The record is a 179-nucleotide sequence from Paenibacillus thalictri, which matches "FMN riboswitch aptamer (RFN element)" in Rfam.
Lineage of the source: Bacteria > Bacillota > Bacilli > Paenibacillaceae > Paenibacillus.
[Rfam]
RNA sequence: CCAUUCCUUCGGGGCGGGGUGAAAUUCCCCACCGGCGGUGAUAGCAAGGCAUGCGGGAGGCACGAAGCUACUGCACGAAUGCCGACGCUUCAGUCCGUGACCCGUGCGGCUUAACGCCUCACGGCUGACUUGGUGAGAAUCCGAGACCGACAGUAUAGUCUGGAUGGGAGAAGGAAAAU
Numbered sequence: 001c002c003a004u005u006c007c008u009u010c011g012g013g014g015c016g017g018g019g020u021g022a023a024a025u026u027c028c029c030c031a032c033c034g035g036c037g038g039u040g041a042u043a044g045c046a047a048g049g050c051a052u053g054c055g056g057g058a059g060g061c062a063c064g065a066a067g068c069u070a071c072u073g074c075a076c077g078a079a080u081g082c083c084g085a086c087g088c089u090u091c092a093g094u095c096c097g098u099g100a101c102c103c104g105u106g107c108g109g110c111u112u113a114a115c116g117c118c119u120c121a122c123g124g125c126u127g128a129c130u131u132g133g134u135g136a137g138a139a140u141c142c143g144a145g146a147c148c149g150a151c152a153g154u155a156u157a158g159u160c161u162g163g164a165u166g167g168g169a170g171a172a173g174g175a176a177a178a179u
Stems, first nucleotide, its partner, number of pairs: 004176007017029003031159002033149002035098004102124002129145005151162003